A member of the RNA family "c-di-GMP-I-GGC riboswitch aptamer" from Paenibacillus contaminans, 91 nucleotides long. Pairs were carried over by alignment from the consensus structure, which is taken from published work.
[Rfam]
RNA sequence: UACGAUAAUGGCAAACUCUUCGAAAGGGGAGGACGCAAAGCAACGGGCCUAAGGACUGCUCUAGCAGUCUAUGGCAGCCGUGCCGCCGAAA
Numbered sequence: 001u002a003c004g005a006u007a008a009u010g011g012c013a014a015a016c017u018c019u020u021c022g023a024a025a026g027g028g029g030a031g032g033a034c035g036c037a038a039a040g041c042a043a044c045g046g047g048c049c050u051a052a053g054g055a056c057u058g059c060u061c062u063a064g065c066a067g068u069c070u071a072u073g074g075c076a077g078c079c080g081u082g083c084c085g086c087c088g089a090a091a
Stems, first nucleotide, its partner, number of pairs: 001091001003088002011036002016031006034077001040083003044080003047075003
Dot-bracket structure: (.((......((...((((((....))))))..[))...(((.((((((.......................))).]))))))...))..)
It scores 72 bits against the family's covariance model. The source organism's lineage runs through Bacteria, Bacillati, Bacillota, Paenibacillaceae and Paenibacillus.